[Rfam]
RNA: Bacterial RNase P class A
Organism: Arenibacter nanhaiticus
RNA sequence: GUAGCAGGUCGCCUUAUCGCUGAAAAGCAAAUUUGUUUUGUAAUUCAGAGGAAAGUCCGGACACCAUAGUGCAGUAUAGCGGGUAACGCCCGUCCAUCGAGAGAUGAGGACAAGUGCAACAGAAAGCAGGUACAGGUAAUGCUGUAGUGAAACCAGGUAAACUCUAUACGGUGCAACGCCAUGUAAAUCAGUGUUUGAGGGUGCACGCCCGAGCUGAAGGGUAGGCGGUUAAAGCUAUUGGGUGACCAAUAGACGAGAUAAAUGAUAAGGACAUUCUUAUUUUUUUAGGGGCAAUUCUAAAAUAGUAAGGCUGAACAGAAUCCGGCUUAUGACCUGCUUUUUUU
Numbered sequence: 001g002u003a004g005c006a007g008g009u010c011g012c013c014u015u016a017u018c019g020c021u022g023a024a025a026a027g028c029a030a031a032u033u034u035g036u037u038u039u040g041u042a043a044u045u046c047a048g049a050g051g052a053a054a055g056u057c058c059g060g061a062c063a064c065c066a067u068a069g070u071g072c073a074g075u076a077u078a079g080c081g082g083g084u085a086a087c088g089c090c091c092g093u094c095c096a097u098c099g100a101g102a103g104a105u106g107a108g109g110a111c112a113a114g115u116g117c118a119a120c121a122g123a124a125a126g127c128a129g130g131u132a133c134a135g136g137u138a139a140u141g142c143u144g145u146a147g148u149g150a151a152a153c154c155a156g157g158u159a160a161a162c163u164c165u166a167u168a169c170g171g172u173g174c175a176a177c178g179c180c181a182u183g184u185a186a187a188u189c190a191g192u193g194u195u196u197g198a199g200g201g202u203g204c205a206c207g208c209c210c211g212a213g214c215u216g217a218a219g220g221g222u223a224g225g226c227g228g229u230u231a232a233a234g235c236u237a238u239u240g241g242g243u244g245a246c247c248a249a250u251a252g253a254c255g256a257g258a259u260a261a262a263u264g265a266u267a268a269g270g271a272c273a274u275u276c277u278u279a280u281u282u283u284u285u286u287a288g289g290g291g292c293a294a295u296u297c298u299a300a301a302a303u304a305g306u307a308a309g310g311c312u313g314a315a316c317a318g319a320a321u322c323c324g325g326c327u328u329a330u331g332a333c334c335u336g337c338u339u340u341u342u343u344u
Stems, first nucleotide, its partner, number of pairs: 001340001003338009012270007020048005027041004053328003057325005062173004069206004074169005079093005094108001095106004109164002114162002116158002131146005177227004188217005199210004235252007